The family of this 134-nucleotide sequence from Cynoglossus semilaevis is "Small nucleolar RNA SNORA55". It scores 54 bits against the family's covariance model. The family has 29 seed sequences and 1,476 matches in Rfam 15.1. By type it is an H/ACA-box small nucleolar RNA. The base pairs follow the family's consensus structure, which was predicted with PFOLD.

RNA sequence: GCACCGCACAACAACCCUGUCGAUUCUGCUCAGUGUUUGAUACGGGUCACGCUUGGUGCCAUAGAGUAAGUCAACGUAAAUCCAGAUGGACCUCCUCCCUCCGUGGAGCCUAUCUCUACAACUUUGAUACACAA
Numbered sequence: 001g002c003a004c005c006g007c008a009c010a011a012c013a014a015c016c017c018u019g020u021c022g023a024u025u026c027u028g029c030u031c032a033g034u035g036u037u038u039g040a041u042a043c044g045g046g047u048c049a050c051g052c053u054u055g056g057u058g059c060c061a062u063a064g065a066g067u068a069a070g071u072c073a074a075c076g077u078a079a080a081u082c083c084a085g086a087u088g089g090a091c092c093u094c095c096u097c098c099c100u101c102c103g104u105g106g107a108g109c110c111u112a113u114c115u116c117u118a119c120a121a122c123u124u125u126g127a128u129a130c131a132c133a134a
Base pairs, nucleotide, nucleotide: 001059002058003057004056005055013047015045016044018042019041021039022038071127072126073125074124076122084115085114086113087112088111089110091108098106099105